[Rfam]
RNA sequence: AAGUGUUUUAUCUAUUUUAAAAUUUGGUAGGUUUGCUAAGUAAAAUUUAGCAAACCUGU
Numbered sequence: 001a002a003g004u005g006u007u008u009u010a011u012c013u014a015u016u017u018u019a020a021a022a023u024u025u026g027g028u029a030g031g032u033u034u035g036c037u038a039a040g041u042a043a044a045a046u047u048u049a050g051c052a053a054a055c056c057u058g059u
Stems, first nucleotide, its partner, number of pairs: 030056011
Rfam assigns this 59-nucleotide RNA sequence from Callithrix jacchus to the family "U7 small nuclear RNA". Animal histone pre-mRNAs are spliced by a different mechanism than nuclear pre-mRNAs and self-splicing introns.